[Rfam]
RNA: Histone 3' UTR stem-loop
RNA sequence: AAAUUGGCCCUUUUCAGGGCCACAAAAUACUUUGAUUGUAGUUUAGU
Numbered sequence: 001a002a003a004u005u006g007g008c009c010c011u012u013u014u015c016a017g018g019g020c021c022a023c024a025a026a027a028u029a030c031u032u033u034g035a036u037u038g039u040a041g042u043u044u045a046g047u
Stems, first nucleotide, its partner, number of pairs: 006021006